[Rfam]
RNA sequence: GUUCCCAGUGAUGUCGUCUUUUUUUACCAUGCUAAUGCUGAUAACUUAUGAUUAUUACUUUCAUUAAACUGAGGGAACU
Numbered sequence: 001g002u003u004c005c006c007a008g009u010g011a012u013g014u015c016g017u018c019u020u021u022u023u024u025u026a027c028c029a030u031g032c033u034a035a036u037g038c039u040g041a042u043a044a045c046u047u048a049u050g051a052u053u054a055u056u057a058c059u060u061u062c063a064u065u066a067a068a069c070u071g072a073g074g075g076a077a078c079u
Base pairs, nucleotide, nucleotide: 001078002077003076004075005074
This 79-nucleotide RNA sequence from Glycine max belongs to the Rfam family "Small nucleolar RNA snoR53Y". A reference for the family is Brown et al. (2001), "Multiple snoRNA gene clusters from Arabidopsis", RNA. Gene Ontology terms of the family: nucleolus and RNA processing. A search with the family's covariance model found it, with a score of 66 bits.